[Rfam]
RNA sequence: AUUUUUGGAUAAUCGCGUAGUAUUUCAAUACUAUGAGGAAAGUCCAUGCUAGCACCGGCUGUGAUGCCGGUAGUGUUUGUGCUAGGCGAAAAAAUAAGCCUAGGGAUGCAGAAAUGCAUUACGGCGAAAGAACGAGCUAAGUCUUCGGAUAUGUUUUAGUAUUUCUGAAAGUGCCACAGUGACGCAGUUUCUAUGGAAACGUAGGAAAUGGAACGCGGUAAACCCCUCAAGCUAGCAACCCAAACUUUGGUCGGGGCAUGGAAUAGAUUGGAAACAAGAACGAGCUAUUCUGACUGUUAUACGGUAGACAGAUGAUUAUCGAAGGAGAUGAUACCUAGUCAUCUCUGGAACAAAACAUGGCUUAUAGAA
Numbered sequence: 001a002u003u004u005u006u007g008g009a010u011a012a013u014c015g016c017g018u019a020g021u022a023u024u025u026c027a028a029u030a031c032u033a034u035g036a037g038g039a040a041a042g043u044c045c046a047u048g049c050u051a052g053c054a055c056c057g058g059c060u061g062u063g064a065u066g067c068c069g070g071u072a073g074u075g076u077u078u079g080u081g082c083u084a085g086g087c088g089a090a091a092a093a094a095u096a097a098g099c100c101u102a103g104g105g106a107u108g109c110a111g112a113a114a115u116g117c118a119u120u121a122c123g124g125c126g127a128a129a130g131a132a133c134g135a136g137c138u139a140a141g142u143c144u145u146c147g148g149a150u151a152u153g154u155u156u157u158a159g160u161a162u163u164u165c166u167g168a169a170a171g172u173g174c175c176a177c178a179g180u181g182a183c184g185c186a187g188u189u190u191c192u193a194u195g196g197a198a199a200c201g202u203a204g205g206a207a208a209u210g211g212a213a214c215g216c217g218g219u220a221a222a223c224c225c226c227u228c229a230a231g232c233u234a235g236c237a238a239c240c241c242a243a244a245c246u247u248u249g250g251u252c253g254g255g256g257c258a259u260g261g262a263a264u265a266g267a268u269u270g271g272a273a274a275c276a277a278g279a280a281c282g283a284g285c286u287a288u289u290c291u292g293a294c295u296g297u298u299a300u301a302c303g304g305u306a307g308a309c310a311g312a313u314g315a316u317u318a319u320c321g322a323a324g325g326a327g328a329u330g331a332u333a334c335c336u337a338g339u340c341a342u343c344u345c346u347g348g349a350a351c352a353a354a355a356c357a358u359g360g361c362u363u364a365u366a367g368a369a
Stems, first nucleotide, its partner, number of pairs: 004369003007365001008320007016035006040363003044360005049235005054071006077230003081226001082103006104122001105120006123225002126165004134156004141150003171223002173219003188207008239255003259292007293305005324346009
A member of the RNA family "Bacterial RNase P class B" from Streptococcus parauberis, 369 nucleotides long. Ribonuclease P (RNase P) is a ubiquitous endoribonuclease, found in archaea, bacteria and eukarya as well as chloroplasts and mitochondria. Its best characterised activity is the generation of mature 5'-ends of tRNAs by cleaving the 5'-leader elements of precursor-tRNAs. Cellular RNase Ps are ribonucleoproteins. RNA from bacterial RNase Ps retains its catalytic activity in the absence of the protein subunit, i.e. it is a ribozyme. On this family, see Frank and Pace, Annu Rev Biochem 1998: "Ribonuclease P: unity and diversity in a tRNA processing ribozyme". Clan: RNaseP clan. It is one of the family's seed sequences. Gene Ontology terms of the family: dimeric ribonuclease P complex, tRNA processing and ribonuclease P activity. The base pairs follow the family's consensus structure, which is taken from published work.